[Rfam]
RNA: U4atac minor spliceosomal RNA
RNA sequence: ACCACCCUUUUCUCUGGGUUGCACCACUGUCCAAUGAGCGUGUAGUGUGAGUGCAGUGCUGUUAACGCCUAAAUAACACACUCGCAUCAGCUAGGGCUCUGCUUUGCCUUGGUGCGAUUUUUGGAAAA
Number, nucleotide and partner (000 for none) at each position: 001a000002c000003c000004a000005c000006c018007c017008u016009u000010u000011u000012c000013u000014c000015u000016g008017g007018g006019u000020u000021g062022c061023a060024c000025c000026a057027c056028u055029g054030u053031c000032c051033a000034a000035u000036g000037a000038g046039c045040g000041u000042g000043u000044a000045g039046u038047g000048u000049g000050a000051g032052u000053g030054c029055a028056g027057u026058g000059c000060u023061g022062u021063u000064a000065a000066c000067g000068c000069c000070u000071a000072a000073a000074u000075a000076a000077c000078a000079c000080a000081c000082u000083c000084g115085c114086a113087u112088c111089a110090g000091c000092u106093a105094g104095g103096g102097c101098u000099c000100u000101g097102c096103u095104u094105u093106g092107c000108c000109u000110u089111g088112g087113u086114g085115c084116g000117a000118u000119u000120u000121u000122u000123g000124g000125a000126a000127a000128a000